[Rfam]
RNA sequence: UUUAGUUGCGGGCGAAAGUGCCGUAUACCUGUGUUCCCGAAUUAACGUUUAAGCGAUCUCUAAGAUCGCCGGCCACAGGGUAGCCGUGGUUCAUUACCACGGCUUUUUUGUAUG
Numbered sequence: 001u002u003u004a005g006u007u008g009c010g011g012g013c014g015a016a017a018g019u020g021c022c023g024u025a026u027a028c029c030u031g032u033g034u035u036c037c038c039g040a041a042u043u044a045a046c047g048u049u050u051a052a053g054c055g056a057u058c059u060c061u062a063a064g065a066u067c068g069c070c071g072g073c074c075a076c077a078g079g080g081u082a083g084c085c086g087u088g089g090u091u092c093a094u095u096a097c098c099a100c101g102g103c104u105u106u107u108u109u110g111u112a113u114g
Stems, first nucleotide, its partner, number of pairs: 007025005012019002028079006037072003040049003053069006082104009
This 114-nucleotide RNA sequence belongs to the Rfam family "DUF3800-I RNA". Actinobacteria, Firmicutes, Fusobacteria, Proteobacteria (1 example), Tenericutes (2 examples). Rfam classes the family as a small RNA. The family's consensus secondary structure is taken from published work. The sequence is in the family's curated seed alignment.